[Rfam]
RNA sequence: GUGCAUUAAGGAUGGGAACGGCAUCCUUUUUCUGGCUUCUUUAGCCAGGAAAAGAUACAGUGGACAGCCUGACCCGCU
Dot-bracket structure: ........(((.((...((...(((...((((((((.......))))))))..)))...))...)).)))........
Numbered sequence: 001g002u003g004c005a006u007u008a009a010g011g012a013u014g015g016g017a018a019c020g021g022c023a024u025c026c027u028u029u030u031u032c033u034g035g036c037u038u039c040u041u042u043a044g045c046c047a048g049g050a051a052a053a054g055a056u057a058c059a060g061u062g063g064a065c066a067g068c069c070u071g072a073c074c075c076g077c078u
Stems, first nucleotide, its partner, number of pairs: 009070003013066002018061002023056003029051008
This 78-nucleotide RNA from Flavobacterium geliluteum belongs to the Rfam family "Flavo-1 RNA". The organism belongs to Flavobacterium, within Bacteria. Rfam classes the family as a small RNA. The family's consensus secondary structure is taken from published work.